[Rfam]
RNA: FMN riboswitch aptamer (RFN element)
RNA sequence: GAACGUCUUCAGGGCGGGGUGGAAUUCCCCACCGGCGGUAGGCGCUAUUCCCCACAGGGGACGGCGCGAGCCCGCGAGCGCUCCCGGCCACGCGAUCCGUCGCGGCCGCCGGGAGGUCAGCAGAUCCGGUCCAAUGCCGGAGCCGACGGUUGAGGCGUGGCCCAGGCCGCGCCCUAGAGUCCGGAUGAAAGAAGACGCAG
Numbered sequence: 001g002a003a004c005g006u007c008u009u010c011a012g013g014g015c016g017g018g019g020u021g022g023a024a025u026u027c028c029c030c031a032c033c034g035g036c037g038g039u040a041g042g043c044g045c046u047a048u049u050c051c052c053c054a055c056a057g058g059g060g061a062c063g064g065c066g067c068g069a070g071c072c073c074g075c076g077a078g079c080g081c082u083c084c085c086g087g088c089c090a091c092g093c094g095a096u097c098c099g100u101c102g103c104g105g106c107c108g109c110c111g112g113g114a115g116g117u118c119a120g121c122a123g124a125u126c127c128g129g130u131c132c133a134a135u136g137c138c139g140g141a142g143c144c145g146a147c148g149g150u151u152g153a154g155g156c157g158u159g160g161c162c163c164a165g166g167c168c169g170c171g172c173c174c175u176a177g178a179g180u181c182c183g184g185a186u187g188a189a190a191g192a193a194g195a196c197g198c199a200g
Base pairs, nucleotide, nucleotide: 004197005196006195007194008193009192010191017029018028019027033145034144035075036074037073038072070143071142078121079120125141126140127139128138129137147183148182149181